[Rfam]
RNA: Small nucleolar RNA SNORA72
Organism: Podarcis muralis
RNA sequence: CUGCGAAUAUUCUCGCUGUCCUGAUAUUUCAGUGAUCAGGGCAGGCUAGACAUUCGCUAUAUUAUAACUAUGUAGUGUGUCCCCAGAGCUAGAUUUGCCUCCCUAGUUCUGGGUUUAAACUGCAAGUAACAUCU
Numbered sequence: 001c002u003g004c005g006a007a008u009a010u011u012c013u014c015g016c017u018g019u020c021c022u023g024a025u026a027u028u029u030c031a032g033u034g035a036u037c038a039g040g041g042c043a044g045g046c047u048a049g050a051c052a053u054u055c056g057c058u059a060u061a062u063u064a065u066a067a068c069u070a071u072g073u074a075g076u077g078u079g080u081c082c083c084c085a086g087a088g089c090u091a092g093a094u095u096u097g098c099c100u101c102c103c104u105a106g107u108u109c110u111g112g113g114u115u116u117a118a119a120c121u122g123c124a125a126g127u128a129a130c131a132u133c134u
Stems, first nucleotide, its partner, number of pairs: 003057003016044010067127003072123002083112010